Background:
Rfam assigns this 113-nucleotide RNA from Thermomonas carbonis to the family "Xanthomonadaceae sRNA asX1". It scores 74 bits against the family's covariance model. By type it is a small RNA.
[Rfam]
RNA sequence: CACCCGGCGUGGCACGCCGAAACGCGAUGAACCGGACUGAACAGGGGCCGGUUCCUGCGCACGACGGGGACGCUACGGGGGCCGGAUGUCGGGGGACAUCCGGCCCUCACUUU
Numbered sequence: 001c002a003c004c005c006g007g008c009g010u011g012g013c014a015c016g017c018c019g020a021a022a023c024g025c026g027a028u029g030a031a032c033c034g035g036a037c038u039g040a041a042c043a044g045g046g047g048c049c050g051g052u053u054c055c056u057g058c059g060c061a062c063g064a065c066g067g068g069g070a071c072g073c074u075a076c077g078g079g080g081g082c083c084g085g086a087u088g089u090c091g092g093g094g095g096a097c098a099u100c101c102g103g104c105c106c107u108c109a110c111u112u113u
Stems, first nucleotide, its partner, number of pairs: 003068004008063004012058002015026003029054006037046002077108014
Dot-bracket structure: ..((((.((((((.(((......)))..((((((..((......))..))))))..)).)))).))))........((((((((((((((....)))))))))))))).....